[Rfam]
Nuclear RNase P: a 299-nucleotide sequence from Gigaspora margarita. The match comes from Rfam's covariance-model search (123 bits). It is annotated as a ribozyme. The family is grouped with related families in Rfam's "RNaseP clan". NCBI's taxonomy places the organism under Eukaryota, Opisthokonta, Glomeromycotina, Glomeromycetes, Gigaspora.
RNA sequence: CGAACGAAAAGCUUGUGUAAGGGGAAAACAUACGGACAGUGAGGUUUCCUCGCCGUCAUCAUAACCCUUGGGAAGGUCUGAGAAAAACCACAAAAAAUCUCUAGCGGAGAUUCCUGUGAAAGUGGGGGGCGAAUAACCAGACACGACACCCUCCUGGAUUAUAUAUAGUAUGAAGUCUUUUGACGGAUUGACAUAGUCCAGGAGUGUUUAAACGCGGUUCGCUGGCGGUAGCUCUAUGGAGUGCGAUACGCAAGGCAUCAUAUUAUGAUGUAACUCAAUUCAGACUACUCUUUCGUUCG
Numbered sequence: 001c002g003a004a005c006g007a008a009a010a011g012c013u014u015g016u017g018u019a020a021g022g023g024g025a026a027a028a029c030a031u032a033c034g035g036a037c038a039g040u041g042a043g044g045u046u047u048c049c050u051c052g053c054c055g056u057c058a059u060c061a062u063a064a065c066c067c068u069u070g071g072g073a074a075g076g077u078c079u080g081a082g083a084a085a086a087a088c089c090a091c092a093a094a095a096a097a098u099c100u101c102u103a104g105c106g107g108a109g110a111u112u113c114c115u116g117u118g119a120a121a122g123u124g125g126g127g128g129g130c131g132a133a134u135a136a137c138c139a140g141a142c143a144c145g146a147c148a149c150c151c152u153c154c155u156g157g158a159u160u161a162u163a164u165a166u167a168g169u170a171u172g173a174a175g176u177c178u179u180u181u182g183a184c185g186g187a188u189u190g191a192c193a194u195a196g197u198c199c200a201g202g203a204g205u206g207u208u209u210a211a212a213c214g215c216g217g218u219u220c221g222c223u224g225g226c227g228g229u230a231g232c233u234c235u236a237u238g239g240a241g242u243g244c245g246a247u248a249c250g251c252a253a254g255g256c257a258u259c260a261u262a263u264u265a266u267g268a269u270g271u272a273a274c275u276c277a278a279u280u281c282a283g284a285c286u287a288c289u290c291u292u293u294c295g296u297u298c299g
Base pairs, nucleotide, nucleotide: 001299002298003297004296007293008292009291012254013253014252015251016250017249018248020069021068022067023066024065039053040052041051042050043049078283079282080281081280082279088225089224090223097111098110099109100108101107112127113126114125115124116123117122129222130221131220132219133218134217147206148205149204255271256270257269258268259267260266261265